[Rfam]
The record is a 119-nucleotide RNA sequence from Rhynchophorus ferrugineus, which matches "U5 spliceosomal RNA" in Rfam. The family's consensus secondary structure is taken from published work. U5 RNA is a component of both types of known spliceosome. The precise function of this molecule is unknown, though it is known that the 5' loop is required for splice site selection and p220 binding, and that both the 3' stem-loop and the Sm site are important for Sm protein binding and cap methylation. The organism belongs to Rhynchophorus, within Eukaryota.
RNA sequence: ACACUCUGGAUUCUCGUCAAAGCGAAUAAAUCUUUCGCCUUUUACUAAAGAUUUCCGUGGCGAGGAUUAACUUAAAUGAGUCUUUAAAAUUUUUCUCAGGUUCCAAAUUGUUGGAACCA
Numbered sequence: 001a002c003a004c005u006c007u008g009g010a011u012u013c014u015c016g017u018c019a020a021a022g023c024g025a026a027u028a029a030a031u032c033u034u035u036c037g038c039c040u041u042u043u044a045c046u047a048a049a050g051a052u053u054u055c056c057g058u059g060g061c062g063a064g065g066a067u068u069a070a071c072u073u074a075a076a077u078g079a080g081u082c083u084u085u086a087a088a089a090u091u092u093u094u095c096u097c098a099g100g101u102u103c104c105a106a107a108u109u110g111u112u113g114g115a116a117c118c119a
Base pairs, nucleotide, nucleotide: 003081004080005079006078009068010067011066012065013064014063015062016061017060018059019058028054029053030052031051032050033049034048035047099118100117101116102115103114104113